[Rfam]
A member of the RNA family "c-di-AMP riboswitch aptamer (ydaO/yuaA leader)" from Pedococcus cremeus, 179 nucleotides long. Rfam links the family to the GO terms regulation of gene expression and cyclic-di-AMP binding. Taxonomically the source falls in Pedococcus (Bacteria, Actinomycetes, Micrococcales, Intrasporangiaceae).
RNA sequence: GGUCUCAGCACACCGCUUGGCAGGAGCGGGGGACCCACUUCUGGGCGGCUUCGGCCGUCCUUGGGGUGAAGCCCUCACCGCGAGCGCCCGCUAGGACGGGCCGCAGACGGGAGGGCCGGGUGACACCAACCUCCACCCGAACCCGACAGCUCACCUCGUAGGCGUUGGAGGUUCAUUCG
Numbered sequence: 001g002g003u004c005u006c007a008g009c010a011c012a013c014c015g016c017u018u019g020g021c022a023g024g025a026g027c028g029g030g031g032g033a034c035c036c037a038c039u040u041c042u043g044g045g046c047g048g049c050u051u052c053g054g055c056c057g058u059c060c061u062u063g064g065g066g067u068g069a070a071g072c073c074c075u076c077a078c079c080g081c082g083a084g085c086g087c088c089c090g091c092u093a094g095g096a097c098g099g100g101c102c103g104c105a106g107a108c109g110g111g112a113g114g115g116c117c118g119g120g121u122g123a124c125a126c127c128a129a130c131c132u133c134c135a136c137c138c139g140a141a142c143c144c145g146a147c148a149g150c151u152c153a154c155c156u157c158g159u160a161g162g163c164g165u166u167g168g169a170g171g172u173u174c175a176u177u178c179g
Base pairs, nucleotide, nucleotide: 003025004024005023026159027158028157029156030155031154036063037062064144065143066142072115073114074113075112118138119137120136121135